The record is a 100-nucleotide RNA sequence from Lonepinella koalarum, which matches "Aggregatibacter sRNA 22" in Rfam.

RNA sequence: GUGCGGUGACAAAAUUCCGAUAGGAAUUUUGAACGCCACUUGUGGCGGGGGCAAAGCCCCGAACAAUCCUUUCAAGGAUUGUAAGUAAUUUUUUCAUUAU
Numbered sequence: 001g002u003g004c005g006g007u008g009a010c011a012a013a014a015u016u017c018c019g020a021u022a023g024g025a026a027u028u029u030u031g032a033a034c035g036c037c038a039c040u041u042g043u044g045g046c047g048g049g050g051g052c053a054a055a056g057c058c059c060c061g062a063a064c065a066a067u068c069c070u071u072u073c074a075a076g077g078a079u080u081g082u083a084a085g086u087a088a089u090u091u092u093u094u095c096a097u098u099a100u
Stems, first nucleotide, its partner, number of pairs: 010031008034047005048060005063082008085097002088094001
For this family Rfam cites "Small RNA repertoires and their intraspecies variation in Aggregatibacter actinomycetemcomitans" (Oogai et al., DNA Res, 2017).
Lineage of the source: Bacteria > Pseudomonadati > Pseudomonadota > Pasteurellales > Lonepinella.